This 82-nucleotide sequence from Flavobacterium psychrophilum belongs to the Rfam family "Flavo-1 RNA".
[Rfam]
RNA sequence: CUUUAGCCCCGAUGGAAGGGAAAAUCCUUUAUGGAAGUCUUUUUUGACGACAUAAAGAUUUGGAAUGACAGCGGGAAACCAA
Dot-bracket structure: ........(((.((...(....((((..(((((...(((......)))..))))).)))).....)..)).)))........
It is annotated as a small RNA.